Shown here is a 71-nucleotide RNA, a member of the family "2dG-II purine riboswitch aptamer". For this family Rfam cites "Bioinformatic analysis of riboswitch structures uncovers variant classes with altered ligand specificity" (Weinberg et al., Proc Natl Acad Sci U S A, 2017). Clan: Purine riboswitches. Gene Ontology term of the family: purine nucleobase biosynthetic process.

RNA sequence: UCGCCGUGUAGCUCGGGGAAUUGGCCCUGGGGUAUCCACGACCUGGCCGUAACCAGGUGCGUCCACGGGAA
Numbered sequence: 001u002c003g004c005c006g007u008g009u010a011g012c013u014c015g016g017g018g019a020a021u022u023g024g025c026c027c028u029g030g031g032g033u034a035u036c037c038a039c040g041a042c043c044u045g046g047c048c049g050u051a052a053c054c055a056g057g058u059g060c061g062u063c064c065a066c067g068g069g070a071a
Stems, first nucleotide, its partner, number of pairs: 001071001004068005012031007041058006